RNA sequence: GGUUAUGAGUGCCAGCGCUUAGCCCCGGCUUGCUGGCCGGCAACCCUCCACCGCGGUGGGGUGCCCCGGGUGACGACCUGGCCGUGAAUCCAACACCGGACACGGCAAGCGCGGACU
Numbered sequence: 001g002g003u004u005a006u007g008a009g010u011g012c013c014a015g016c017g018c019u020u021a022g023c024c025c026c027g028g029c030u031u032g033c034u035g036g037c038c039g040g041c042a043a044c045c046c047u048c049c050a051c052c053g054c055g056g057u058g059g060g061g062u063g064c065c066c067c068g069g070g071u072g073a074c075g076a077c078c079u080g081g082c083c084g085u086g087a088a089u090c091c092a093a094c095a096c097c098g099g100a101c102a103c104g105g106c107a108a109g110c111g112c113g114g115a116c117u
Base pairs, nucleotide, nucleotide: 001078002077003076004075009038011037012036013035014034015033016032021030022029039065040064041063044061045060046059048056049055081106082105083104084103085102086101089100090099091098
RNA: SAM (S-adenosyl methionine) riboswitch aptamer